This 114-nucleotide RNA sequence from Cuscuta campestris belongs to the Rfam family "Small nucleolar RNA Z107/R87". A search with the family's covariance model found it, with a score of 91 bits. The family's consensus secondary structure was predicted with RNAfold. A reference for the family is Barneche et al. (2001), "Identification of 66 box C/D snoRNAs in Arabidopsis thaliana: extensive gene duplications generated multiple isoforms predicting new ribosomal RNA 2'-O-methylation sites", J Mol Biol. Rfam classes the family as a C/D-box small nucleolar RNA. The source organism's lineage runs through Eukaryota, Spermatophyta, eudicotyledons, Pentapetalae and Cuscuta sect. Cleistogrammica.
RNA sequence: GAUCACAGUGAUGACUUGCAAUAUUCAAGCUCAACAGACCGGAACGAGGCUUCUUCUUCCUGGAAAUGGGUUGAAGGAGUUUGCCUGUCGAUUACCCCGCUGAACUGAGUGAUC
Dot-bracket structure: ((((((......................................................................................................))))))